[Rfam]
RNA: Small nucleolar RNA SNORA70
Organism: Vicugna pacos
RNA sequence: CUAUAGCCAGCUAAACCAACUGUGCUCUUUUUCUGCAUGAGGGCCUAGUGUGCAGUGGCUGCAAACAGCAUUCUCGGUAGUGUGUGCAGCCUGUUGCUUGUAUGAGUUGCCCUAAGGGACCUUGGAGACGGCC
Numbered sequence: 001c002u003a004u005a006g007c008c009a010g011c012u013a014a015a016c017c018a019a020c021u022g023u024g025c026u027c028u029u030u031u032u033c034u035g036c037a038u039g040a041g042g043g044c045c046u047a048g049u050g051u052g053c054a055g056u057g058g059c060u061g062c063a064a065a066c067a068g069c070a071u072u073c074u075c076g077g078u079a080g081u082g083u084g085u086g087c088a089g090c091c092u093g094u095u096g097c098u099u100g101u102a103u104g105a106g107u108u109g110c111c112c113u114a115a116g117g118g119a120c121c122u123u124g125g126a127g128a129c130g131g132c133c
Stems, first nucleotide, its partner, number of pairs: 002054001004052002019049004025043004076121003087109004092104001